[Rfam]
RNA: MIR8565 microRNA precursor family
Organism: Amborella trichopoda
RNA sequence: CCCAUACCCAUGUGUGUGGGACCCCAAAGGAUCACCAUUAAAUUUAAUACAGAUGUCUAGAAAAAUUAUCACAUGGGCGUGGGAGUUUAUUUUUCUAGAGAUCUGUGCCAAAUUUAAUGGUGAUCCUUUGGGGUCCUACACACAUGGGUGUGGG
Numbered sequence: 001c002c003c004a005u006a007c008c009c010a011u012g013u014g015u016g017u018g019g020g021a022c023c024c025c026a027a028a029g030g031a032u033c034a035c036c037a038u039u040a041a042a043u044u045u046a047a048u049a050c051a052g053a054u055g056u057c058u059a060g061a062a063a064a065a066u067u068a069u070c071a072c073a074u075g076g077g078c079g080u081g082g083g084a085g086u087u088u089a090u091u092u093u094u095c096u097a098g099a100g101a102u103c104u105g106u107g108c109c110a111a112a113u114u115u116a117a118u119g120g121u122g123a124u125c126c127u128u129u130g131g132g133g134u135c136c137u138a139c140a141c142a143c144a145u146g147g148g149u150g151u152g153g154g
Base pairs, nucleotide, nucleotide: 002153003152004151005150006149007148008147009146010145011144012143013142015140016139017138018137019136020135021134022133023132024131025130026129027128028127030125031124032123034121035120036119037118038117039116040115041114042113043112044111045110048107049106050105051104052103053102054101056099057098058097059096060095061094062093063092064091065090066089068087069082070081071080072079